[Rfam]
This 117-nucleotide sequence from Clostridium sp. JN-9 belongs to the Rfam family "FMN riboswitch aptamer (RFN element)". The organism belongs to Clostridium, within Bacteria. The family's consensus secondary structure is taken from published work.
RNA sequence: GAUAAUCUUCGGGGCGGGGUUUGAUUCCCCACCGGUGGUAAAGCCCACGAGCCUAUUUAGGCAUGAUUCGGUGUAAUUCCGAGGCCGACAGUAAAGUCUGGAUGAAAGAAGGUUAAG
Numbered sequence: 001g002a003u004a005a006u007c008u009u010c011g012g013g014g015c016g017g018g019g020u021u022u023g024a025u026u027c028c029c030c031a032c033c034g035g036u037g038g039u040a041a042a043g044c045c046c047a048c049g050a051g052c053c054u055a056u057u058u059a060g061g062c063a064u065g066a067u068u069c070g071g072u073g074u075a076a077u078u079c080c081g082a083g084g085c086c087g088a089c090a091g092u093a094a095a096g097u098c099u100g101g102a103u104g105a106a107a108g109a110a111g112g113u114u115a116a117g
Base pairs, nucleotide, nucleotide: 003115004114005113006112007111008110009109010108017029018028019027031097032096033087034086035048036047037046038045043085044084053061067083068082069081070080071079089100090099091098